The family of this 65-nucleotide sequence from Clostridiales bacterium PH28_bin88 is "Fluoride riboswitch aptamer (crcB RNA motif)". A reference for the family is Ren et al. (2012), "Fluoride ion encapsulation by Mg2+ ions and phosphates in a fluoride riboswitch", Nature. It scores 43 bits against the family's covariance model. NCBI's taxonomy places the organism under Bacteria, Bacillati, Bacillota, Clostridia, Eubacteriales.

RNA sequence: AACUAUCAUGGCGAUGGGGUUCGCCAUAAACACUGCCCCUGGCGGUUGAUAACCCCUACCAAAUU
Numbered sequence: 001a002a003c004u005a006u007c008a009u010g011g012c013g014a015u016g017g018g019g020u021u022c023g024c025c026a027u028a029a030a031c032a033c034u035g036c037c038c039c040u041g042g043c044g045g046u047u048g049a050u051a052a053c054c055c056c057u058a059c060c061a062a063a064u065u
Stems, first nucleotide, its partner, number of pairs: 010025004016056006032046004